This 402-nucleotide part of an RNA from Allomyces macrogynus belongs to the Rfam family "Eukaryotic large subunit ribosomal RNA". It is one of the family's seed sequences.
[Rfam]
RNA sequence: GGAUAUUUUUCUCAAUAGUAAUUCAACUUAGUACGAGAGGAACCGUUGAAUCGCAUCCUUGGUAUUUGCGGUUGGUUGAGUAGCCAGUGCCGCGAAGCUAACAUGCGUAGGAUUACGGCUGAACGCCUCUAAGUCGGAAUCCAUGCUAGAAGAGAAGAAAUUUGGCUUCUUUUUUUACGCCAAUAGCUGGACCUUGCAAUACCCUUUUGGGUUAAGCCAUCGCCAGGCAUUCUGGUUUACUUGCGAAUAAGCUCGUAUUCCACACGCCUGCAAAGACAACGUUUAGGGAAAAGAAGUAAAAUCCCUUGCAGACGACUUGAAUGUAGAAGCGGGGGCUGUACGCAGUAGAGUAGCCUUGUUGCUACGAUCUGCUGAGGCUUAUCCCGUCUUCUCUAGAUUUGU
Numbered sequence: 001g002g003a004u005a006u007u008u009u010u011c012u013c014a015a016u017a018g019u020a021a022u023u024c025a026a027c028u029u030a031g032u033a034c035g036a037g038a039g040g041a042a043c044c045g046u047u048g049a050a051u052c053g054c055a056u057c058c059u060u061g062g063u064a065u066u067u068g069c070g071g072u073u074g075g076u077u078g079a080g081u082a083g084c085c086a087g088u089g090c091c092g093c094g095a096a097g098c099u100a101a102c103a104u105g106c107g108u109a110g111g112a113u114u115a116c117g118g119c120u121g122a123a124c125g126c127c128u129c130u131a132a133g134u135c136g137g138a139a140u141c142c143a144u145g146c147u148a149g150a151a152g153a154g155a156a157g158a159a160a161u162u163u164g165g166c167u168u169c170u171u172u173u174u175u176u177a178c179g180c181c182a183a184u185a186g187c188u189g190g191a192c193c194u195u196g197c198a199a200u201a202c203c204c205u206u207u208u209g210g211g212u213u214a215a216g217c218c219a220u221c222g223c224c225a226g227g228c229a230u231u232c233u234g235g236u237u238u239a240c241u242u243g244c245g246a247a248u249a250a251g252c253u254c255g256u257a258u259u260c261c262a263c264a265c266g267c268c269u270g271c272a273a274a275g276a277c278a279a280c281g282u283u284u285a286g287g288g289a290a291a292a293g294a295a296g297u298a299a300a301a302u303c304c305c306u307u308g309c310a311g312a313c314g315a316c317u318u319g320a321a322u323g324u325a326g327a328a329g330c331g332g333g334g335g336c337u338g339u340a341c342g343c344a345g346u347a348g349a350g351u352a353g354c355c356u357u358g359u360u361g362c363u364a365c366g367a368u369c370u371g372c373u374g375a376g377g378c379u380u381a382u383c384c385c386g387u388c389u390u391c392u393c394u395a396g397a398u399u400u401g402u
Base pairs, nucleotide, nucleotide: 006159007158008157009156010155011154012153013152016148017147018146019145021051022050023049024048025047026046027045052107053106054105055104056103060100061099062098067094068093069092070091071090072087073086074085075084076083077082110142111141116136117135118134119133120132167295168294169293170292171291172290173289299400300399301398302397303396305319308316325392326391327390328389329388331385332384333383335378336377342372343371344370345369347368350365351364352363353362354361
Overview: The organism belongs to Allomyces macrogynus, within Eukaryota.